[Rfam]
RNA: U12 minor spliceosomal RNA
Organism: Rhododendron simsii
Nucleotides: 154
Base pairs, nucleotide, nucleotide: 004023005022006021007020008019032053033052034051035050036049037048038047039046054069055068056067057066058065085154091151092150093149094148095147097145099142100141102139103138104137105136106135111125112124113123114122
Number, partner (000 for none) and nucleotide at each position: 001000a002000u003000g004023c005022c006021u007020u008019g009000a010000a011000c012000u013000a014000a015000u016000g017000a018000g019008u020007a021006g022005g023004g024000a025000a026000a027000a028000c029000a030000a031000a032053g033052u034051g035050a036049g037048c038047g039046g040000u041000g042000g043000g044000a045000g046039c047038u048037g049036c050035u051034c052033g053032u054069u055068g056067c057066g058065c059000c060000u061000u062000c063000g064000u065058g066057u067056g068055c069054a070000u071000g072000a073000a074000a075000u076000u077000u078000u079000g080000g081000a082000g083000g084000g085154g086000u087000u088000a089000a090000a091151a092150g093149g094148c095147u096000g097145g098000c099142c100141g101000a102139g103138c104137g105136u106135u107000g108000a109000c110000g111125c112124u113123g114122c115000c116000u117000a118000c119000c120000u121000a122114g123113c124112a125111g126000a127000a128000c129000a130000c131000g132000c133000u134000c135106a136105a137104c138103g139102c140000u141100c142099g143000u144000g145097u146000g147095g148094g149093c150092c151091u152000c153000c154085c